[Rfam]
RNA sequence: CGGGGAAAACACGGACUCCCCGGAGUCAGCAGACCAAGACGGUGUCCCGUCCAAGUCCG
Numbered sequence: 001c002g003g004g005g006a007a008a009a010c011a012c013g014g015a016c017u018c019c020c021c022g023g024a025g026u027c028a029g030c031a032g033a034c035c036a037a038g039a040c041g042g043u044g045u046c047c048c049g050u051c052c053a054a055g056u057c058c059g
Stems, first nucleotide, its partner, number of pairs: 001022006012059004038051005
RNA: chrB-b RNA